[Rfam]
RNA sequence: UGGGUAGUAUCCACAGGGAGCUGCACCGGUUUGUUAUAUUCAAAUAUAAUUUUAUUUUAAUCUGCUCAUAUCACAUGGAAUGAGACUGCUAU
Numbered sequence: 001u002g003g004g005u006a007g008u009a010u011c012c013a014c015a016g017g018g019a020g021c022u023g024c025a026c027c028g029g030u031u032u033g034u035u036a037u038a039u040u041c042a043a044a045u046a047u048a049a050u051u052u053u054a055u056u057u058u059a060a061u062c063u064g065c066u067c068a069u070a071u072c073a074c075a076u077g078g079a080a081u082g083a084g085a086c087u088g089c090u091a092u
Base pairs, nucleotide, nucleotide: 001028002027003026004024005023006022007021008020010019011018062088064086065084066083067082068081069080071079072078
RNA: pan motif
Organism: Clostridium homopropionicum